[Rfam]
RNA sequence: GGACGGUGAAGAUUGAUAUUUGGUCUCAACUGGCAUUUAUUUGCCUUGCCGACCAUCCUGCUAUAUCACCACCCAUAUUCUGUGUCC
Numbered sequence: 001g002g003a004c005g006g007u008g009a010a011g012a013u014u015g016a017u018a019u020u021u022g023g024u025c026u027c028a029a030c031u032g033g034c035a036u037u038u039a040u041u042u043g044c045c046u047u048g049c050c051g052a053c054c055a056u057c058c059u060g061c062u063a064u065a066u067c068a069c070c071a072c073c074c075a076u077a078u079u080c081u082g083u084g085u086c087c
Base pairs, nucleotide, nucleotide: 001087002086003085004084035047